The record is a 53-nucleotide sequence, which matches "ffh sRNA" in Rfam.
[Rfam]
RNA sequence: AAGUGCCGGGAUCGCCCCCCCACCAGCGUGUUACGCCCGUGGGGGCGCUUGUG
Numbered sequence: 001a002a003g004u005g006c007c008g009g010g011a012u013c014g015c016c017c018c019c020c021c022a023c024c025a026g027c028g029u030g031u032u033a034c035g036c037c038c039g040u041g042g043g044g045g046c047g048c049u050u051g052u053g
Stems, first nucleotide, its partner, number of pairs: 017045007026036004
Source information
The family's consensus secondary structure is taken from published work.